[Rfam]
RNA: mir-87 microRNA precursor family
Organism: Cimex lectularius
RNA sequence: CACGCAUCGCCUGAUCCUUGCUUCAACCUCAUUAUGCCGAGCAAGGUGAGCAAAGUUUCAGGUGUGUGUGUGA
Dot-bracket structure: .(((((((((((((..(((..((((.(((..............)))))))..)))..))))))).))))))..